[Rfam]
The family of this 84-nucleotide sequence from Nesidiocoris tenuis is "mir-981 microRNA precursor family".
A search with the family's covariance model found it, with a score of 59 bits.
RNA sequence: CUAGACAUAAUUCGGGUUUCGUGGGCGAACGGGCCUGUUGUUCAAUAUCUAGUUCGUUGUCGACGAAACCUGAACAAUGUCAGA
Numbered sequence: 001c002u003a004g005a006c007a008u009a010a011u012u013c014g015g016g017u018u019u020c021g022u023g024g025g026c027g028a029a030c031g032g033g034c035c036u037g038u039u040g041u042u043c044a045a046u047a048u049c050u051a052g053u054u055c056g057u058u059g060u061c062g063a064c065g066a067a068a069c070c071u072g073a074a075c076a077a078u079g080u081c082a083g084a
Base pairs, nucleotide, nucleotide: 002083004081005080006079013072014071015070016069017068018067019066020065021064031055032054033053034052

The base pairs follow the family's consensus structure, which was predicted with RNAalifold.
Rfam links the family to the GO terms RISC complex and miRNA-mediated post-transcriptional gene silencing.